SAM riboswitch aptamer (S box leader): a 121-nucleotide RNA sequence from Pseudonocardia sulfidoxydans. Lineage of the source: Bacteria > Bacillati > Actinomycetes > Pseudonocardia > Pseudonocardia sulfidoxydans. A search with the family's covariance model found it, with a score of 78 bits.
RNA sequence: GGCUCAUCCAGAGGGGUAGAGGGAACGGCCCGUUGACACCCCGGCAACCGGCGUCGCACGACCAUCGCGAGUGACGAUCACGGUGCCAAUUCCGACCCGCUUCGUGCGGGGAAGAUGAGGA
Numbered sequence: 001g002g003c004u005c006a007u008c009c010a011g012a013g014g015g016g017u018a019g020a021g022g023g024a025a026c027g028g029c030c031c032g033u034u035g036a037c038a039c040c041c042c043g044g045c046a047a048c049c050g051g052c053g054u055c056g057c058a059c060g061a062c063c064a065u066c067g068c069g070a071g072u073g074a075c076g077a078u079c080a081c082g083g084u085g086c087c088a089a090u091u092c093c094g095a096c097c098c099g100c101u102u103c104g105u106g107c108g109g110g111g112a113a114g115a116u117g118a119g120g121a
Stems, first nucleotide, its partner, number of pairs: 003119006013042005021031003026094003043087004048083002050079002091113001096110005